RNA sequence: ACUAUUGGUAGAGGUCGCAUUGUUAAAUAGUAGUUUUGUGGAGGUAAGCACGAAGAAGCAAAAUAAAAGGUAACUAUGCCGAAAUAUAUAAGGGAAGCUUUAAACUUAUAUAUUGGGGUUAUGCAAAAUAUGUAUAACACUGUCACAUUCAUAUGUGGAGUGCUAUCUUUAGA
Numbered sequence: 001a002c003u004a005u006u007g008g009u010a011g012a013g014g015u016c017g018c019a020u021u022g023u024u025a026a027a028u029a030g031u032a033g034u035u036u037u038g039u040g041g042a043g044g045u046a047a048g049c050a051c052g053a054a055g056a057a058g059c060a061a062a063a064u065a066a067a068a069g070g071u072a073a074c075u076a077u078g079c080c081g082a083a084a085u086a087u088a089u090a091a092g093g094g095a096a097g098c099u100u101u102a103a104a105c106u107u108a109u110a111u112a113u114u115g116g117g118g119u120u121a122u123g124c125a126a127a128a129u130a131u132g133u134a135u136a137a138c139a140c141u142g143u144c145a146c147a148u149u150c151a152u153a154u155g156u157g158g159a160g161u162g163c164u165a166u167c168u169u170u171a172g173a
Stems, first nucleotide, its partner, number of pairs: 007167005017079004022074004033064007083114010115141002118138008143158006